[Rfam]
RNA sequence: CCCGCGGCGGGACAAAAAGACCCCGUGGAGCUUGACUGCAGCUUGCCACUGGGUGCGGGCCCGGCCUGUGCAGGAUAGGUGGGAGGCUGAGAAGCGGGGCCGCCAGGCUCCGUGGAGCCGCCGGUGAGAUACCACCCUGGCGGGGUUUGCGCCCUCACCUGGCCCGCGGGAACGCGGGCAGGGACCGUGGCUGGUGGGCAGUUUGACUGGGGCGGUCGCCUCCUAAAGGGUAACGGAGGCGCCCAAAGGUCCCCUCAGGCCGGAUGGCAAUCGGCCGGAGCGUGCAUGGGCAGCAAGGGGGCUUGACUGCGAGGGGGACAUCCCGAGCAGGGCCGAAAGGCGGGCCAAGUGACCCCACGGUUCCGUGUGGGCGGGCCGUGGAUCAACGGAUAAAAGCUACCCCGGGGAUAACAGGCUGAUCGGGCCCAAGAGUUCACAUCGACGGCCCGGUUUGGCACCUCGAUGUCGGCUCGUCGCAUCCUGGGGCUGGAGGAGGUCCCAAGGGUUGGGCUGUUCGCCCAUGAAAGCGGCACGUGAGCUGGGUUCAGAACGUCGUGAGACAGUUCGGUCUCUAUCCGCCGCGGGCGUC
Numbered sequence: 001c002c003c004g005c006g007g008c009g010g011g012a013c014a015a016a017a018a019g020a021c022c023c024c025g026u027g028g029a030g031c032u033u034g035a036c037u038g039c040a041g042c043u044u045g046c047c048a049c050u051g052g053g054u055g056c057g058g059g060c061c062c063g064g065c066c067u068g069u070g071c072a073g074g075a076u077a078g079g080u081g082g083g084a085g086g087c088u089g090a091g092a093a094g095c096g097g098g099g100c101c102g103c104c105a106g107g108c109u110c111c112g113u114g115g116a117g118c119c120g121c122c123g124g125u126g127a128g129a130u131a132c133c134a135c136c137c138u139g140g141c142g143g144g145g146u147u148u149g150c151g152c153c154c155u156c157a158c159c160u161g162g163c164c165c166g167c168g169g170g171a172a173c174g175c176g177g178g179c180a181g182g183g184a185c186c187g188u189g190g191c192u193g194g195u196g197g198g199c200a201g202u203u204u205g206a207c208u209g210g211g212g213c214g215g216u217c218g219c220c221u222c223c224u225a226a227a228g229g230g231u232a233a234c235g236g237a238g239g240c241g242c243c244c245a246a247a248g249g250u251c252c253c254c255u256c257a258g259g260c261c262g263g264a265u266g267g268c269a270a271u272c273g274g275c276c277g278g279a280g281c282g283u284g285c286a287u288g289g290g291c292a293g294c295a296a297g298g299g300g301g302c303u304u305g306a307c308u309g310c311g312a313g314g315g316g317g318a319c320a321u322c323c324c325g326a327g328c329a330g331g332g333c334c335g336a337a338a339g340g341c342g343g344g345c346c347a348a349g350u351g352a353c354c355c356c357a358c359g360g361u362u363c364c365g366u367g368u369g370g371g372c373g374g375g376c377c378g379u380g381g382a383u384c385a386a387c388g389g390a391u392a393a394a395a396g397c398u399a400c401c402c403c404g405g406g407g408a409u410a411a412c413a414g415g416c417u418g419a420u421c422g423g424g425c426c427c428a429a430g431a432g433u434u435c436a437c438a439u440c441g442a443c444g445g446c447c448c449g450g451u452u453u454g455g456c457a458c459c460u461c462g463a464u465g466u467c468g469g470c471u472c473g474u475c476g477c478a479u480c481c482u483g484g485g486g487c488u489g490g491a492g493g494a495g496g497u498c499c500c501a502a503g504g505g506u507u508g509g510g511c512u513g514u515u516c517g518c519c520c521a522u523g524a525a526a527g528c529g530g531c532a533c534g535u536g537a538g539c540u541g542g543g544u545u546c547a548g549a550a551c552g553u554c555g556u557g558a559g560a561c562a563g564u565u566c567g568g569u570c571u572c573u574a575u576c577c578g579c580c581g582c583g584g585g586c587g588u589c
Base pairs, nucleotide, nucleotide: 001585002584003583004582005581006580007579008578010577011576012575015571022406023405024404025403027402028401029398030397031396032395033394035202036201037200038199042194043193045191046190047189048188051154052153053152054151055150056149057148058147059146060145061144062143064141065140066139068137078136079135080134081133082132085119086118087117094113095112096111097110098109099108100107101106158182159181160180162179163178164177165176166175167174205217206216207215208214218240219239220238221237222236223235241387243344244343249302250301251300252299253298254297256280258276259275260274261273262272263271282291283290307330308329309328310327313324314323315322332341333340334339355381356380357379358378359377360376361375363374364373415456416455417454419453420450421449422448423447424446425445426444430440431439467542468540469539470538471537472534473531474530475529476528477527480505481504483500484499485498486497487496488495507521508520509519510518511517548566549565550564551563552561553560554559
Dot-bracket structure: ((((((((.(((..(......((((.(((((((.((((...((.((((..((((((((((((.(((.(.........(((((..(((......((((((((....))))))))...)))............)))))).))).))))))))))))...(((.((((((......))))))))).....)))).))....))))..((((.....))))((((((...........))))))(.((....((((((.(.((((((.......))))))...).((......)).....))))))....((((..(((......)))..)))).(((....))).))..........(((((((.((........))))))))).....)......)))))..))))))........(((.((((((((...((.......))...)))))))..))))..........(((((((((((..((.((((((......))))))...)).(((((.....))))).....)))))..)..)))).).....(((((((....))).))))....)...)))))))))))....